The record is an 87-nucleotide RNA sequence from Solanum lycopersicum, which matches "MIR8024 microRNA precursor family" in Rfam. Lineage of the source: Eukaryota > Viridiplantae > Embryophyta > Magnoliopsida > Solanum subgen. Lycopersicon. Gene Ontology terms of the family: miRNA-mediated post-transcriptional gene silencing and RISC complex. The family's consensus secondary structure was predicted with RNAalifold.
[Rfam]
RNA sequence: UUGGAGGAUUUGAAGACUUCAACUUGCAUAUUUGAAGGAUUUGAAGACUUCAACUUGCAAAUUUUGAAGAAUUUAAAGACAUCAGAA
Numbered sequence: 001u002u003g004g005a006g007g008a009u010u011u012g013a014a015g016a017c018u019u020c021a022a023c024u025u026g027c028a029u030a031u032u033u034g035a036a037g038g039a040u041u042u043g044a045a046g047a048c049u050u051c052a053a054c055u056u057g058c059a060a061a062u063u064u065u066g067a068a069g070a071a072u073u074u075a076a077a078g079a080c081a082u083c084a085g086a087a
Stems, first nucleotide, its partner, number of pairs: 001085004006080001009077006017069005025059004032053006